FMN riboswitch aptamer (RFN element): a 145-nucleotide RNA from Massiliimalia timonensis.
RNA sequence: AGUCUGUUUCAGGGCGGAGUGAGAUUCUCCACCGGCGGUAAUGGGAGUUUUCCUUAGUCCGCGAGCAGAACAGCUUUUUAUAAGCUGUAGCAGAUCCGGUGUGAUUCCGGAACCGACGGUAUAGUCCGGAUGAAAGAAACAUUGC
Numbered sequence: 001a002g003u004c005u006g007u008u009u010c011a012g013g014g015c016g017g018a019g020u021g022a023g024a025u026u027c028u029c030c031a032c033c034g035g036c037g038g039u040a041a042u043g044g045g046a047g048u049u050u051u052c053c054u055u056a057g058u059c060c061g062c063g064a065g066c067a068g069a070a071c072a073g074c075u076u077u078u079u080a081u082a083a084g085c086u087g088u089a090g091c092a093g094a095u096c097c098g099g100u101g102u103g104a105u106u107c108c109g110g111a112a113c114c115g116a117c118g119g120u121a122u123a124g125u126c127c128g129g130a131u132g133a134a135a136g137a138a139a140c141a142u143u144g145c
Stems, first nucleotide, its partner, number of pairs: 005141006017029003031125002033115002035062004057113002065091002095111005117128003